[Rfam]
Record summary
The record is a 94-nucleotide RNA sequence from uncultured Faecalibacterium sp., which matches "PreQ1-III (pre queuosine) riboswitch aptamer" in Rfam. It is one of the family's seed sequences. Rfam links the family to the GO term queuosine biosynthetic process. Lineage of the source: Bacteria > Bacillati > Bacillota > Eubacteriales > Faecalibacterium. A reference for the family is Liberman et al. (2015), "Structural analysis of a class III preQ1 riboswitch reveals an aptamer distant from a ribosome-binding site regulated by fast dynamics", Proc Natl Acad Sci U S A. The family's consensus secondary structure is taken from published work.

RNA sequence: GAGCAACUUAGGAUUUUAGGCUCCGCCUGGUUUUCAGGCGCAAACCCACCCAAGCCUGGCGGUCUUGGGCGCGGUCAAAAUCUAUCCGCCGGAG
Dot-bracket structure: [[[[......((((((...]]]](((((((...))))))).....((.((((((.........))))))...))...))))))...........